The record is a 61-nucleotide sequence from Planktothrix tepida, which matches "Plastid-psbN 5UTR RNA" in Rfam. The organism belongs to Planktothrix tepida, within Bacteria. Rfam classes the family as a cis-regulatory element. Plastid psbN is a non-coding RNA (ncRNA) recognised in plastids. It was reported as a conserved 11 stem-loop in the prime untranslated region (5UTR) of psbN genes. It has been reported that the motif is retained in a subset of mature transcripts in barley, which can suggests a possible role in transcript alternative 5 prime processing. A search with the family's covariance model found it, with a score of 54 bits.
RNA sequence: AAACACUGCCAUUACAGGAGUUGUACCCCAACCUGGAGCAACUUUACCAUACUCAGAAUUU
Numbered sequence: 001a002a003a004c005a006c007u008g009c010c011a012u013u014a015c016a017g018g019a020g021u022u023g024u025a026c027c028c029c030a031a032c033c034u035g036g037a038g039c040a041a042c043u044u045u046a047c048c049a050u051a052c053u054c055a056g057a058a059u060u061u
Base pairs, nucleotide, nucleotide: 017045018044019043020042021041022040023039024038026036027035